The family of this 96-nucleotide sequence from Aphanothece hegewaldii is "TPP riboswitch aptamer (THI element)".

RNA sequence: AGACAUAGCUAGGGGUGCCUAAACAGACGGGCUGAGAAAUACCCUUAGAACCUGAGACUGGCUAAUACCAGCGUAGGGAAGCUGUUUAUAGAGGAU
Numbered sequence: 001a002g003a004c005a006u007a008g009c010u011a012g013g014g015g016u017g018c019c020u021a022a023a024c025a026g027a028c029g030g031g032c033u034g035a036g037a038a039a040u041a042c043c044c045u046u047a048g049a050a051c052c053u054g055a056g057a058c059u060g061g062c063u064a065a066u067a068c069c070a071g072c073g074u075a076g077g078g079a080a081g082c083u084g085u086u087u088a089u090a091g092a093g094g095a096u
Stems, first nucleotide, its partner, number of pairs: 006084005011045004016039001017032004051077004058071004